[Rfam]
RNA sequence: GCGUCGCCCCGAGCGACGCACGCCCGCCUGAAACGGGCCAGUGUGCGGGGGGUGGUGCCGUGUCGGCGCAGCACCACCCCCCGUAU
Numbered sequence: 001g002c003g004u005c006g007c008c009c010c011g012a013g014c015g016a017c018g019c020a021c022g023c024c025c026g027c028c029u030g031a032a033a034c035g036g037g038c039c040a041g042u043g044u045g046c047g048g049g050g051g052g053u054g055g056u057g058c059c060g061u062g063u064c065g066g067c068g069c070a071g072c073a074c075c076a077c078c079c080c081c082c083g084u085a086u
Stems, first nucleotide, its partner, number of pairs: 001019007020044004026039001027037003046083013060069003
RNA: Streptomyces RNA 6106
Organism: Streptomyces sp. ISL-12